RNA sequence: GGCCCGGGACCACGACCCCGAGCUCGCCCUCUUCUCCGGCGAGGACGGCCUCG
Number, nucleotide and partner (000 for none) at each position: 001g024002g023003c022004c000005c020006g019007g018008g017009a000010c000011c000012a000013c000014g000015a000016c000017c008018c007019c006020g005021a000022g003023c002024u001025c000026g000027c000028c000029c000030u000031c000032u000033u000034c000035u000036c000037c000038g000039g000040c053041g052042a051043g050044g049045a000046c000047g000048g000049c044050c043051u042052c041053g040